Shown here is a 61-nucleotide RNA sequence from Moschus moschiferus, a member of the family "U7 small nuclear RNA". The base pairs follow the family's consensus structure, which was predicted with PFOLD. Rfam describes the family as follows. Animal histone pre-mRNAs are spliced by a different mechanism than nuclear pre-mRNAs and self-splicing introns.
RNA sequence: AAGUGUUAUAGAUCUUUUAGAAUUUGUUUAGCAGGUUUUCUGGGCCUCACCAGAAACCAUU
Numbered sequence: 001a002a003g004u005g006u007u008a009u010a011g012a013u014c015u016u017u018u019a020g021a022a023u024u025u026g027u028u029u030a031g032c033a034g035g036u037u038u039u040c041u042g043g044g045c046c047u048c049a050c051c052a053g054a055a056a057c058c059a060u061u
Stems, first nucleotide, its partner, number of pairs: 034058003038055006